Rfam assigns this 129-nucleotide sequence from Hymenochirus boettgeri to the family "Small nucleolar RNA SNORA14". Rfam's curators write: ACA14 is a member of the H/ACA class of snoRNA that guide the sites of modification of uridines to pseudouridines. It is annotated as an H/ACA-box small nucleolar RNA. Rfam links the family to the GO terms nucleolus and RNA processing. The base pairs follow the family's consensus structure, which was predicted with RNAfold.
RNA sequence: CUGCAUCCUUAAAACCCCCCAAAGCUUCACUUUGUGGUUAUUGGGACAAGAAAGAAUGCGAGAUUAAGAACAAGGGUUCCAAAGCUGGGAGAGCCUGUGUCCCCCUGCGAUUUCACCCCUCAUACAAAU
Numbered sequence: 001c002u003g004c005a006u007c008c009u010u011a012a013a014a015c016c017c018c019c020c021a022a023a024g025c026u027u028c029a030c031u032u033u034g035u036g037g038u039u040a041u042u043g044g045g046a047c048a049a050g051a052a053a054g055a056a057u058g059c060g061a062g063a064u065u066a067a068g069a070a071c072a073a074g075g076g077u078u079c080c081a082a083a084g085c086u087g088g089g090a091g092a093g094c095c096u097g098u099g100u101c102c103c104c105c106u107g108c109g110a111u112u113u114c115a116c117c118c119c120u121c122a123u124a125c126a127a128a129u
Base pairs, nucleotide, nucleotide: 003059004058005057006056009051010050018045019044020043021042022041023039024038025037063129064128065127070123073120074119075118084108085107087105088104089103091101092100